Overview
The record is a 94-nucleotide RNA from Octadecabacter temperatus, which matches "Rhodo-rpoB RNA" in Rfam. The organism belongs to Octadecabacter, within Bacteria. It scores 69 bits against the family's covariance model. The family's RNA type in Rfam is cis-regulatory element.
RNA sequence: UGGUCGGGAGGUGCCCAGUGGGAUGGGUGCCAAGAAUUGGCCGAAUUCAAUCUGUUCUCAUGGGGCACUCCGCCGUCGCCCAACGGUGUUGUGU
Number, nucleotide and partner (000 for none) at each position: 001u043002g042003g041004u040005c039006g000007g000008g000009a000010g031011g030012u029013g028014c027015c026016c025017a024018g000019u000020g000021g000022g000023a000024u017025g016026g015027g014028u013029g012030c011031c010032a000033a000034g000035a000036a000037u000038u000039g005040g004041c003042c002043g001044a000045a000046u000047u000048c000049a000050a000051u000052c000053u000054g000055u000056u000057c000058u000059c000060a000061u000062g000063g000064g000065g000066c000067a094068c093069u000070c091071c088072g087073c086074c085075g084076u000077c000078g000079c000080c000081c000082a000083a000084c075085g074086g073087u072088g071089u000090u000091g070092u000093g068094u067